[Rfam]
Nucleotides: 195
Stems, first nucleotide, its partner, number of pairs: 005189002012032003016028003020024001033043003050059001062077001064075001078135002081132001083130003087126001091123002095119003099112002102109002136163003140159002143156003167186002170183002
Number, partner (000 for none) and nucleotide at each position: 001000c002000a003000c004000u005189g006188a007000c008000a009000u010000u011000a012032a013031u014030g015000a016028u017027u018026c019000a020024u021000u022000c023000u024020g025000c026018g027017a028016a029000c030014c031013a032012u033043g034042g035041c036000c037000a038000a039000c040000a041035g042034c043033c044000a045000g046000a047000u048000a049000a050059g051000a052000g053000u054000g055000c056000a057000u058000g059050c060000c061000c062077a063000a064075c065000u066000c067000u068000u069000u070000c071000a072000u073000u074000u075064g076000c077062u078135g079134u080000u081132c082000a083130c084129c085128a086000a087126u088000c089000a090000c091123g092122c093000g094000a095119g096118u097117g098000a099112u100111g101000a102109u103108g104000u105000u106000g107000g108103u109102g110000c111100u112099a113000a114000a115000u116000g117097c118096a119095u120000c121000g122092g123091c124000c125000a126087a127000c128085u129084g130083g131000c132081g133000c134079g135078c136163u137162u138161g139000a140159g141158a142000c143156g144155c145154c146000a147000g148000a149000u150000a151000g152000g153000c154145g155144g156143c157000a158141u159140u160000a161138c162137a163136a164000a165000u166000a167186u168185u169000c170183g171182g172000c173000g174000g175000c176000a177000u178000g179000u180000u181000a182171c183170c184000c185168a186167a187000a188006u189005c190000u191000u192000u193000c194000g195000c
Description
This 195-nucleotide sequence from Yersinia enterocolitica belongs to the Rfam family "Yersinia sRNA 276". The base pairs follow the family's consensus structure, which was predicted with RNAfold.